The family of this 184-nucleotide sequence from Helianthus annuus is "Early nodulin 40". It scores 65 bits against the family's covariance model. The base pairs follow the family's consensus structure, which is taken from published work. On this family, see Gultyaev and Roussis, Nucleic Acids Res 2007: "Identification of conserved secondary structures and expansion segments in enod40 RNAs reveals new enod40 homologues in plants". The source organism's lineage runs through Eukaryota, Tracheophyta, Pentapetalae, asterids and Helianthus.
[Rfam]
Nucleotides: 184
Base pairs, nucleotide, nucleotide: 042084043083044082099143100142101141102140103139169182170181171180172179173178
Number, partner (000 for none) and nucleotide at each position: 001000a002000u003000g004000c005000a006000u007000u008000g009000g010000c011000a012000u013000g014000u015000a016000u017000c018000u019000u020000g021000a022000g023000a024000a025000u026000u027000g028000g029000g030000g031000c032000a033000a034000u035000u036000a037000a038000g039000g040000a041000g042084a043083g044082a045000a046000a047000g048000a049000a050000g051000a052000u053000g054000a055000g056000u057000u058000a059000c060000a061000c062000u063000u064000u065000g066000u067000u068000a069000u070000g071000c072000c073000a074000u075000c076000u077000c078000u079000u080000c081000c082044u083043c084042u085000c086000c087000a088000c089000c090000u091000u092000u093000c094000a095000a096000a097000u098000a099143g100142u101141u102140u103139g104000a105000u106000u107000u108000u109000g110000g111000c112000a113000u114000u115000a116000a117000c118000c119000a120000u121000u122000u123000u124000u125000g126000g127000g128000u129000a130000g131000u132000g133000u134000c135000g136000a137000a138000a139103c140102a141101a142100a143099c144000c145000g146000g147000c148000a149000a150000g151000u152000c153000a154000c155000g156000a157000a158000a159000c160000g161000g162000c163000g164000a165000a166000g167000g168000a169182g170181a171180c172179u173178c174000a175000c176000u177000c178173g179172a180171g181170u182169c183000u184000u